[Rfam]
RNA: Lysine riboswitch aptamer
Organism: Neobacillus mesonae
RNA sequence: AGUGAGGAUAGAGGCGCAAAAACCAUUAGUACAUAAUUUGAGGAUAAUGAGAUCCUGUGAUAGUUAUGGAAAGGGGAAUUUGCCGAAGUAUCAAGAAACUCAUUGUUCUUGAUGCUGGUUCUGUGUUGAACAAGCACAGGAUUGUCAUAUAGGAAACUAUAUGGAGGGCUAUCUCACGC
Numbered sequence: 001a002g003u004g005a006g007g008a009u010a011g012a013g014g015c016g017c018a019a020a021a022a023c024c025a026u027u028a029g030u031a032c033a034u035a036a037u038u039u040g041a042g043g044a045u046a047a048u049g050a051g052a053u054c055c056u057g058u059g060a061u062a063g064u065u066a067u068g069g070a071a072a073g074g075g076g077a078a079u080u081u082g083c084c085g086a087a088g089u090a091u092c093a094a095g096a097a098a099c100u101c102a103u104u105g106u107u108c109u110u111g112a113u114g115c116u117g118g119u120u121c122u123g124u125g126u127u128g129a130a131c132a133a134g135c136a137c138a139g140g141a142u143u144g145u146c147a148u149a150u151a152g153g154a155a156a157c158u159a160u161a162u163g164g165a166g167g168g169c170u171a172u173c174u175c176a177c178g179c
Stems, first nucleotide, its partner, number of pairs: 006174006016083005023076002032068007087116011117143011145164007